[Rfam]
RNA: pan motif
RNA sequence: AGGGCGGUAUCGAUUUGAGAGCUGCACCUGUUUGGCAAAUGAAUUAUAUACAAGUUCUGCCUUGAUCUAUUUAGACAGGGACGGAGGA
Numbered sequence: 001a002g003g004g005c006g007g008u009a010u011c012g013a014u015u016u017g018a019g020a021g022c023u024g025c026a027c028c029u030g031u032u033u034g035g036c037a038a039a040u041g042a043a044u045u046a047u048a049u050a051c052a053a054g055u056u057c058u059g060c061c062u063u064g065a066u067c068u069a070u071u072u073a074g075a076c077a078g079g080g081a082c083g084g085a086g087g088a
Stems, first nucleotide, its partner, number of pairs: 001029003004025005010020002057084003060080005066075003